[Rfam]
RNA sequence: UUGUUCCCUUGUUCAAGUAAUCCAGGAUAGGCUGUCUGUCCUGGAGGCCUAUUCAUGAUUACUUGCACUAGGUGGCAG
Number, nucleotide and partner (000 for none) at each position: 001u000002u077003g076004u075005u074006c000007c072008c071009u070010u000011g068012u067013u000014c065015a064016a063017g062018u061019a060020a059021u058022c057023c000024a000025g054026g053027a052028u051029a050030g049031g048032c047033u046034g000035u000036c000037u000038g000039u000040c000041c000042u000043g000044g000045a000046g033047g032048c031049c030050u029051a028052u027053u026054c025055a000056u000057g022058a021059u020060u019061a018062c017063u016064u015065g014066c000067a012068c011069u000070a009071g008072g007073u000074g005075g004076c003077a002078g000
RNA: mir-26 microRNA precursor family